[Rfam]
RNA sequence: UGUGGCCUGCGUCCGCCGAAGCCCUACGUUCCUACGCGGGGUAUAUAUGUAGGCGGCGCGGGCCACU
Numbered sequence: 001u002g003u004g005g006c007c008u009g010c011g012u013c014c015g016c017c018g019a020a021g022c023c024c025u026a027c028g029u030u031c032c033u034a035c036g037c038g039g040g041g042u043a044u045a046u047a048u049g050u051a052g053g054c055g056g057c058g059c060g061g062g063c064c065a066c067u
Stems, first nucleotide, its partner, number of pairs: 002066012015054003021042005027036003
Description:
The family of this 67-nucleotide sequence from Colidextribacter sp. OB.20 is "DUF3800-VIII RNA". NCBI's taxonomy places the organism under Bacteria, Bacillati, Bacillota, Eubacteriales, Colidextribacter. Rfam describes the family as follows. Bacteroidetes, Cyanobacteria, Firmicutes, Planctomycetes (1 example), Proteobacteria, Tenericutes (1 example). The family's consensus secondary structure is taken from published work.